[Rfam]
RNA: 6S / SsrS RNA
Organism: Megasphaera vaginalis
RNA sequence: AAAACCCUACUGUGUGCGUAAAUGGUCUCGAUGUUUUGAACCAACACUUCAUACAUUGGGAGUCCGGGCUCUAUUGCGGUAAAACAAUGCCUUUUGCGGGACUGUUGAACCUCAUAGGAGGACACCCACCUGCUUAGGCAGGCUCAAAACUCGGUUUAUAAACGGCAUGGUGGGGUUCUU
Numbered sequence: 001a002a003a004a005c006c007c008u009a010c011u012g013u014g015u016g017c018g019u020a021a022a023u024g025g026u027c028u029c030g031a032u033g034u035u036u037u038g039a040a041c042c043a044a045c046a047c048u049u050c051a052u053a054c055a056u057u058g059g060g061a062g063u064c065c066g067g068g069c070u071c072u073a074u075u076g077c078g079g080u081a082a083a084a085c086a087a088u089g090c091c092u093u094u095u096g097c098g099g100g101a102c103u104g105u106u107g108a109a110c111c112u113c114a115u116a117g118g119a120g121g122a123c124a125c126c127c128a129c130c131u132g133c134u135u136a137g138g139c140a141g142g143c144u145c146a147a148a149a150c151u152c153g154g155u156u157u158a159u160a161a162a163c164g165g166c167a168u169g170g171u172g173g174g175g176u177u178c179u180u
Stems, first nucleotide, its partner, number of pairs: 003177013017164003035148001037146003041142002058127003062123004069117001072116003076112001078111002085104002090100003